[Rfam]
RNA sequence: UAAACUCAAAUUUAUAUGGAGUUGGAACGUUUGCCUACGUUUGCGCAGGAUGCGCUCUUCCAACUGCAUACAAAUUUGACGCUA
Numbered sequence: 001u002a003a004a005c006u007c008a009a010a011u012u013u014a015u016a017u018g019g020a021g022u023u024g025g026a027a028c029g030u031u032u033g034c035c036u037a038c039g040u041u042u043g044c045g046c047a048g049g050a051u052g053c054g055c056u057c058u059u060c061c062a063a064c065u066g067c068a069u070a071c072a073a074a075u076u077u078g079a080c081g082c083u084a
Stems, first nucleotide, its partner, number of pairs: 008077006015070002018067001020065008029056001034049003039046002